Shown here is a 76-nucleotide RNA from Bactrocera dorsalis, a member of the family "mir-980 microRNA precursor family". The family's consensus secondary structure was predicted with RNAalifold. NCBI's taxonomy places the organism under Eukaryota, Bilateria, Pterygota, Schizophora, Bactrocera dorsalis complex.
RNA sequence: AUUACAAGCCGGUCCGUCAUAUGGCAAUCUAACUGAGUUCGCUUGUUAGCUGCCUUGUGAAGGGCUUCCUUGUAGU
Numbered sequence: 001a002u003u004a005c006a007a008g009c010c011g012g013u014c015c016g017u018c019a020u021a022u023g024g025c026a027a028u029c030u031a032a033c034u035g036a037g038u039u040c041g042c043u044u045g046u047u048a049g050c051u052g053c054c055u056u057g058u059g060a061a062g063g064g065c066u067u068c069c070u071u072g073u074a075g076u
Stems, first nucleotide, its partner, number of pairs: 004073005011066005017060004023054002029049005